[Rfam]
RNA: STnc490 Hfq binding RNA
Organism: Paenibacillus faecis
RNA sequence: AACCCCCAGUUUGACUGGGGGUUCAGGAAAGCUUAUAGCUAUGAGUAAAAAUCCCUUGACCUUUAUGAUAAAAUGAUAGCCGGUCUGCCAACCGCAUCAUGAAAUCAAGGAGGACAAGG
Numbered sequence: 001a002a003c004c005c006c007c008a009g010u011u012u013g014a015c016u017g018g019g020g021g022u023u024c025a026g027g028a029a030a031g032c033u034u035a036u037a038g039c040u041a042u043g044a045g046u047a048a049a050a051a052u053c054c055c056u057u058g059a060c061c062u063u064u065a066u067g068a069u070a071a072a073a074u075g076a077u078a079g080c081c082g083g084u085c086u087g088c089c090a091a092c093c094g095c096a097u098c099a100u101g102a103a104a105u106c107a108a109g110g111a112g113g114a115c116a117a118g119g
Base pairs, nucleotide, nucleotide: 001023002022003021004020005019006018007017008016009015010014028042030040031039032038033037054119055118056117057116058115060113061112062111063107065105066104069102071100074099075098076097077096081094082093083092084091